[Rfam]
RNA: MIR812 microRNA precursor family
Organism: Oryza brachyantha
Nucleotides: 191
Base pairs, nucleotide, nucleotide: 027181029179030178031177032176034174035173036172037171038170039169040168042166043165044164045163046162047161048160049159050158051157
Number, partner (000 for none) and nucleotide at each position: 001000a002000a003000u004000a005000a006000a007000u008000c009000a010000a011000u012000u013000u014000u015000u016000c017000a018000c019000u020000u021000u022000u023000u024000a025000c026000c027181u028000a029179c030178a031177a032176u033000u034174u035173u036172u037171g038170a039169c040168u041000c042166u043165u044164c045163g046162u047161c048160u049159u050158a051157u052000u053000c054000a055000a056000a057000u058000u059000u060000u061000u062000u063000u064000g065000c066000g067000a068000u069000u070000g071000a072000u073000a074000u075000u076000u077000u078000u079000g080000u081000u082000u083000u084000u085000u086000a087000u088000u089000a090000g091000a092000u093000g094000a095000u096000a097000a098000a099000u100000c101000a102000u103000g104000a105000a106000u107000a108000g109000u110000a111000u112000u113000u114000u115000a116000u117000g118000u119000g120000u121000g122000a123000c124000u125000a126000a127000c128000u129000u130000u131000u132000u133000u134000c135000u136000a137000a138000u139000u140000u141000u142000c143000u144000g145000a146000a147000a148000a149000u150000u151000u152000c153000u154000c155000a156000a157051a158050u159049a160048a161047g162046a163045c164044g165043g166042a167000u168040g169039g170038u171037c172036a173035a174034a175000c176032g177031u178030u179029g180000g181027a182000u183000a184000u185000g186000g187000a188000a189000a190000c191000c